[Rfam]
RNA sequence: GUCACCGCCGGACGGAACAGGUCACGAGGGUUGGGGAACCCGAUGACCGGCCUGGACCGAGACGGCCACGAGUACUAGGGAGCUCGGGGCAGUCGCUUCGGUGAAGGAG
Numbered sequence: 001g002u003c004a005c006c007g008c009c010g011g012a013c014g015g016a017a018c019a020g021g022u023c024a025c026g027a028g029g030g031u032u033g034g035g036g037a038a039c040c041c042g043a044u045g046a047c048c049g050g051c052c053u054g055g056a057c058c059g060a061g062a063c064g065g066c067c068a069c070g071a072g073u074a075c076u077a078g079g080g081a082g083c084u085c086g087g088g089g090c091a092g093u094c095g096c097u098u099c100g101g102u103g104a105a106g107g108a109g
Stems, first nucleotide, its partner, number of pairs: 006103007013059003018054006028041005061094003065090002069086005

A member of the RNA family "Actinomyces-1 RNA" from Actinomyces urogenitalis, 109 nucleotides long. Taxonomically the source falls in Actinomyces urogenitalis (Bacteria, Actinomycetes, Actinomycetales, Actinomycetaceae). The base pairs follow the family's consensus structure, which is taken from published work. Rfam's curators put it in the seed alignment. It is annotated as a small RNA.